[Rfam]
Nucleotides: 115
Stems, first nucleotide, its partner, number of pairs: 006103005011065004016059001017040004047058004071096004077090004
Number, partner (000 for none) and nucleotide at each position: 001000c002000g003000c004000a005000g006103c007102u008101u009100g010099u011065c012064g013063g014062g015000g016059u017040g018039c019038c020037c021000g022000g023000g024000a025000u026000g027000u028000u029000c030000a031000c032000a033000u034000c035000c036000g037020g038019g039018g040017c041000u042000g043000a044000g045000a046000u047058c048057g049056c050055a051000a052000a053000a054000a055050u056049g057048c058047g059016a060000g061000a062014c063013c064012c065011g066000c067000u068000g069000a070000a071096c072095c073094u074093g075000a076000u077090c078089g079088g080087g081000a082000u083000c084000a085000u086000g087080c088079c089078c090077g091000c092000g093074u094073a095072g096071g097000a098000a099010a100009c101008a102007a103006g104000g105000c106000a107000c108000u109000u110000u111000g112000g113000c114000u115000c
Background: A member of the RNA family "TPP riboswitch aptamer (THI element)" from Polaromonas naphthalenivorans, 115 nucleotides long. Lineage of the source: Bacteria > Burkholderiales > Comamonadaceae > Polaromonas > Polaromonas naphthalenivorans. It scores 77 bits against the family's covariance model.